[Rfam]
RNA sequence: GCUGGUGUAAAUGAUGACUAAUUUUUUCCCCAUCAGAGCGACAGUGUUGAUUUUUUGCUGUUCCAAGCCAGAUCAUGUCUGAUACACCAGU
Numbered sequence: 001g002c003u004g005g006u007g008u009a010a011a012u013g014a015u016g017a018c019u020a021a022u023u024u025u026u027u028c029c030c031c032a033u034c035a036g037a038g039c040g041a042c043a044g045u046g047u048u049g050a051u052u053u054u055u056u057g058c059u060g061u062u063c064c065a066a067g068c069c070a071g072a073u074c075a076u077g078u079c080u081g082a083u084a085c086a087c088c089a090g091u
Stems, first nucleotide, its partner, number of pairs: 001091009
A member of the RNA family "Small nucleolar SNORD12/SNORD106" from Melopsittacus undulatus, 91 nucleotides long. Pairs were carried over by alignment from the consensus structure, which was predicted with RNAalifold. The source organism's lineage runs through Eukaryota, Craniata, Sarcopterygii, Sauria and Melopsittacus. On this family, see Huttenhofer et al., EMBO J 2001: "RNomics: an experimental approach that identifies 201 candidates for novel, small, non-messenger RNAs in mouse".